[Rfam]
RNA sequence: ACUUCCCUCGCCCCCGCCGCCCCUUCCCGUCCCGACCCUGGGGCGCAGCCCCAGGGUCGGGACGGGAAGGGGCGGCGGGGGCGAGGAAACCCUCC
Numbered sequence: 001a002c003u004u005c006c007c008u009c010g011c012c013c014c015c016g017c018c019g020c021c022c023c024u025u026c027c028c029g030u031c032c033c034g035a036c037c038c039u040g041g042g043g044c045g046c047a048g049c050c051c052c053a054g055g056g057u058c059g060g061g062a063c064g065g066g067a068a069g070g071g072g073c074g075g076c077g078g079g080g081g082c083g084a085g086g087a088a089a090c091c092c093u094c095c
Base pairs, nucleotide, nucleotide: 010082011081012080013079014078015077016076018074019073021071022070023069024068025067026066027065028064029063030062031061032060033059034058035057036056037055038054039053040052041051042050043049044048
Dot-bracket structure: .........(((((((.((.((((((((((((((((((((((((...)))))))))))))))))))))))).)).))))))).............
Rfam assigns this 95-nucleotide sequence from Streptomyces apricus to the family "mraW RNA". By type it is a cis-regulatory element. Taxonomically the source falls in Streptomyces (Bacteria, Bacillati, Actinomycetota, Kitasatosporales). A search with the family's covariance model found it, with a score of 51 bits. The base pairs follow the family's consensus structure, which is taken from published work.